Voltage-gated potassium-channel Kv1.4 IRES: a 256-nucleotide sequence from Myotis lucifugus.
Its family is annotated with ribosome binding in the Gene Ontology.
The family's RNA type in Rfam is internal ribosome entry site.
It scores 220 bits against the family's covariance model.
Pairs were carried over by alignment from the consensus structure, which was predicted with RNAalifold.
Rfam describes the family as follows. This family represents the Kv1.4 voltage-gated potassium-channel internal ribosome entry site (IRES). This region has been shown to mediate internal ribosome entry in cells derived from brain, heart, and skeletal muscle, tissues known to express Kv1.4 mRNA species.
[Rfam]
RNA sequence: UAGGUUUGAGAGUGCUAGGCUGUUCACCUGGACCAGCCAAGCUCUGAAGAGCCAUGUCGAAUCCCUGGGAAGACAGAGCAUGGGGCGUGCUGAUUUAAAAACAGAAAAUGCAAAGUUGGACUGAAAAUACCCUCAGUCUUCCAAGCAAUCUGCUUGAGGGCUCCAAACUUACCUUCAUUUGGUGAGAAAGAAAAUAAAAAAGCUUUCUUUCUUCUUCUACAACUGGAACCAGCCAUUUCCCCAAACCAGCACCAUG
Dot-bracket structure: .............................................(.(((................(((((((.((((..(.....(...(..(((.....((((...(((....(((((..((............)).)))))))).))))...............((((((.......)))))).)))..).).....)...)))).)))))))...................))).)................